SAM riboswitch aptamer (S box leader): a 107-nucleotide sequence from Bacillus cereus. The source organism's lineage runs through Bacteria, Bacilli, Caryophanales, Bacillus and Bacillus cereus. Rfam's curators write: The SAM riboswitch is found upstream of a number of genes which code for proteins involved in methionine or cysteine biosynthesis in Gram-positive bacteria. Pairs were carried over by alignment from the consensus structure, which is taken from published work. Rfam's curators put it in the seed alignment. Its Rfam clan is "SAM clan".

[Rfam]
RNA sequence: CUCUUAUCAAGAGAGGUGGAGGGAUCGGCCCUAUGAAACCUCGGCAACCCCUAUUUUAUUUAGGAAGGUGCCAAUUCCUUUAGAAUUUAAAUUCUAAAAGAUAAGAA
Numbered sequence: 001c002u003c004u005u006a007u008c009a010a011g012a013g014a015g016g017u018g019g020a021g022g023g024a025u026c027g028g029c030c031c032u033a034u035g036a037a038a039c040c041u042c043g044g045c046a047a048c049c050c051c052u053a054u055u056u057u058a059u060u061u062a063g064g065a066a067g068g069u070g071c072c073a074a075u076u077c078c079u080u081u082a083g084a085a086u087u088u089a090a091a092u093u094c095u096a097a098a099a100g101a102u103a104a105g106a107a
Base pairs, nucleotide, nucleotide: 002106003105004104005103006102007101008100013042014041015040016039017038021031022030023029027078028077043072044071045070046069048068049067050064051063052062053061076099081096082095083094084093085092086091